[Rfam]
RNA sequence: CUUUAUUUGGCAACACACCACACAUGCAUCGUCACGGCCGGUGGGGUGCCGUUCCGUCGGGAACGGUCGCCGGCCGGGAUGCGUGGAGGCGCAAC
Numbered sequence: 001c002u003u004u005a006u007u008u009g010g011c012a013a014c015a016c017a018c019c020a021c022a023c024a025u026g027c028a029u030c031g032u033c034a035c036g037g038c039c040g041g042u043g044g045g046g047u048g049c050c051g052u053u054c055c056g057u058c059g060g061g062a063a064c065g066g067u068c069g070c071c072g073g074c075c076g077g078g079a080u081g082c083g084u085g086g087a088g089g090c091g092c093a094a095c
Stems, first nucleotide, its partner, number of pairs: 023085008035076009048067005
A member of the RNA family "t44 RNA" from Methylococcus capsulatus, 95 nucleotides long. About the family: This family consists of a number of bacterial RNA genes of between 135 and 170 bases in length. The t44 gene has been identified in several species of enteric bacteria but homologs have also been identified in Pseudomonas and Coxiella species. The t44 gene is found between the map and rpsB genes in all species in the full alignment apart from Shigella flexneri. The function of this RNA is unknown.